[Rfam]
RNA: Small nucleolar RNA SNORD99
Organism: Salvelinus namaycush
RNA sequence: UCUGAUCAAUGAUUGAUACCUUUUAAAAUGUGACUGAUGGAUGAAACAUGCGGAUAUGGGACUGAGAUCAGAA
Numbered sequence: 001u002c003u004g005a006u007c008a009a010u011g012a013u014u015g016a017u018a019c020c021u022u023u024u025a026a027a028a029u030g031u032g033a034c035u036g037a038u039g040g041a042u043g044a045a046a047c048a049u050g051c052g053g054a055u056a057u058g059g060g061a062c063u064g065a066g067a068u069c070a071g072a073a
Base pairs, nucleotide, nucleotide: 001072002071003070004069005068